[Rfam]
Shown here is a 141-nucleotide sequence from Prunella fulvescens, a member of the family "Small nucleolar RNA SNORA79". By type it is an H/ACA-box small nucleolar RNA. Its family is annotated with RNA processing and nucleolus in the Gene Ontology. From the family's description: ACA65 (SNORA79) is a member of the H/ACA class of snoRNAs that guide the sites of modification of uridines to pseudouridines. This snoRNA was identified by computational screening and its expression in mouse experimentally verified by Northern blot and primer extension analysis. The base pairs follow the family's consensus structure, which was predicted with RNAalifold. Taxonomically the source falls in Prunella (Eukaryota, Bilateria, Vertebrata, Saurischia).
RNA sequence: CGACCCGCGUUCCCCCCGUCGCCGCCAGCCGCGGGCGCUCGGGGUUUUAGCGGCGUCGCAGAGAAGCGGCGGCUCCUUCUUCACCCGGCGGAGCGGAGGCGGCCUCGGGGGCUCCGCCGGAGUUUGGGGGGCCAAACAAAU
Numbered sequence: 001c002g003a004c005c006c007g008c009g010u011u012c013c014c015c016c017c018g019u020c021g022c023c024g025c026c027a028g029c030c031g032c033g034g035g036c037g038c039u040c041g042g043g044g045u046u047u048u049a050g051c052g053g054c055g056u057c058g059c060a061g062a063g064a065a066g067c068g069g070c071g072g073c074u075c076c077u078u079c080u081u082c083a084c085c086c087g088g089c090g091g092a093g094c095g096g097a098g099g100c101g102g103c104c105u106c107g108g109g110g111g112c113u114c115c116g117c118c119g120g121a122g123u124u125u126g127g128g129g130g131g132c133c134a135a136a137c138a139a140a141u
Base pairs, nucleotide, nucleotide: 001058002057003056004055005053006052007051008050014044015043016042017041018040020037021036022035023034071133072132073131074130075129076128085120086119087118088117089116090115091114092113093112094111098104099103